This 132-nucleotide sequence from Muntiacus reevesi belongs to the Rfam family "Small nucleolar RNA SNORA70". Taxonomically the source falls in Muntiacus (Eukaryota, Craniata, Boreoeutheria, Cervidae). A reference for the family is Charette and Gray (2000), "Pseudouridine in RNA: what, where, how, and why", IUBMB Life. The match comes from Rfam's covariance-model search (94 bits). The family has 43 seed sequences and 5,173 matches in Rfam 15.1. The base pairs follow the family's consensus structure, which was predicted with PFOLD. Its family is annotated with RNA processing and nucleolus in the Gene Ontology. Rfam's curators write: snoRNA U70 seems to be exclusive to mammals and is a member of the H/ACA class of snoRNA which contain H (ANANNA) and ACA box motifs. H/ACA box snoRNAs are involved in the conversion of uridines to pseudouridines (5-ribosyluracil) a constituent of structural RNAs (transfer, ribosomal, small nuclear, and small nucleolar).
RNA sequence: CCUGAUCCUUGAAGGCACUGGUGUUUGCAACUUUAAAAGCCCUAGGUUUGAUGGCUGCAAACAGCAGCCUCCUUGGUAGUGUAUGCAACCUGUUGCCUGUACAGGUAGCCCUAAGGGACCUUGGAGACAACU
Numbered sequence: 001c002c003u004g005a006u007c008c009u010u011g012a013a014g015g016c017a018c019u020g021g022u023g024u025u026u027g028c029a030a031c032u033u034u035a036a037a038a039g040c041c042c043u044a045g046g047u048u049u050g051a052u053g054g055c056u057g058c059a060a061a062c063a064g065c066a067g068c069c070u071c072c073u074u075g076g077u078a079g080u081g082u083a084u085g086c087a088a089c090c091u092g093u094u095g096c097c098u099g100u101a102c103a104g105g106u107a108g109c110c111c112u113a114a115g116g117g118a119c120c121u122u123g124g125a126g127a128c129a130a131c132u
Stems, first nucleotide, its partner, number of pairs: 002050001004048002018045004024039003075120003086108001088106004